This 222-nucleotide RNA sequence from Pseudomonas cremoricolorata belongs to the Rfam family "sRNA regulator of biofilms A". Important for biofilm formation and pathogenicity. Bacterial strain with deleted SrbA had reduced biofilm mass. As the ability to form biofilms can contribute to the ability a pathogen to thrive within the host, the C. elegans hosts infected with the srbA deleted strain displayed significantly lower mortality rate than the wild-type strain. The literature on the family includes a 2017 paper in PLoS One by Taylor et al., "A novel small RNA is important for biofilm formation and pathogenicity in Pseudomonas aeruginosa". The family's consensus secondary structure was predicted with R-scape. The source organism's lineage runs through Bacteria, Pseudomonadati, Pseudomonadales, Pseudomonadaceae and Pseudomonas.
RNA sequence: AUCAGGGGCCCUGACCGGGCCUGCGGGGCGCACUCCCGCCACCUGUGGAGGCGCUCCGUGUCCAUGCAGCCCAAAAGGCAGCGCGACGCGAUGGUGACUGCAACGAAGAAGUUGUCCCGAGGGACGGAAGCGCUUGACCGCAGCCACGGCCACCGACGUCGCCUGUGCAGCACGGCAUCCACGAGCCACGCUGCCGGCGGGUCCACCGCGCCUGCUUUCUUC
Numbered sequence: 001a002u003c004a005g006g007g008g009c010c011c012u013g014a015c016c017g018g019g020c021c022u023g024c025g026g027g028g029c030g031c032a033c034u035c036c037c038g039c040c041a042c043c044u045g046u047g048g049a050g051g052c053g054c055u056c057c058g059u060g061u062c063c064a065u066g067c068a069g070c071c072c073a074a075a076a077g078g079c080a081g082c083g084c085g086a087c088g089c090g091a092u093g094g095u096g097a098c099u100g101c102a103a104c105g106a107a108g109a110a111g112u113u114g115u116c117c118c119g120a121g122g123g124a125c126g127g128a129a130g131c132g133c134u135u136g137a138c139c140g141c142a143g144c145c146a147c148g149g150c151c152a153c154c155g156a157c158g159u160c161g162c163c164u165g166u167g168c169a170g171c172a173c174g175g176c177a178u179c180c181a182c183g184a185g186c187c188a189c190g191c192u193g194c195c196g197g198c199g200g201g202u203c204c205a206c207c208g209c210g211c212c213u214g215c216u217u218u219c220u221u222c
Base pairs, nucleotide, nucleotide: 006022007021008020009019010018011017027055028054029053030052034050036048038046039045057155058154060151062149063148069079070078071077081139085134087132088131117127118126167194168193169192170191171190174187175186176185200218201217204214205213